[Rfam]
Nucleotides: 149
Stems, first nucleotide, its partner, number of pairs: 011039004016034001019033006045067006053090004069086003073082002118149003126143007
Number, partner (000 for none) and nucleotide at each position: 001000a002000c003000g004000c005000u006000g007000c008000a009000g010000c011039c012038a013037u014036g015000u016034u017000c018000c019033g020032c021031u022030g023029a024028c025000g026000u027000u028024g029023u030022c031021a032020g033019c034016a035000a036014c037013a038012u039011g040000c041000c042000c043000a044000g045067g046066u047065g048064g049063u050062c051000a052000c053090g054089a055088u056087c057000u058000u059000c060000a061000a062050g063049a064048c065047c066046a067045c068000g069086g070085c071084g072000c073082g074081g075000u076000u077000c078000c079000g080000u081074c082073c083000a084071c085070g086069u087056g088055a089054u090053c091000g092000a093000u094000c095000c096000a097000g098000u099000u100000c101000g102000c103000a104000c105000c106000c107000g108000g109000c110000a111000u112000c113000c114000c115000a116000g117000c118149g119148c120147g121000a122000a123000c124000g125000c126143c127142c128141g129140u130139c131138g132137a133000g134000u135000c136000a137132u138131c139130g140129a141128u142127g143126g144000u145000g146000a147120u148119g149118c

The record is a 149-nucleotide RNA from Pseudomonas fluorescens, which matches "radC RNA" in Rfam. A search with the family's covariance model found it, with a score of 122 bits. The source organism's lineage runs through Bacteria, Pseudomonadota, Pseudomonadales, Pseudomonadaceae and Pseudomonas fluorescens.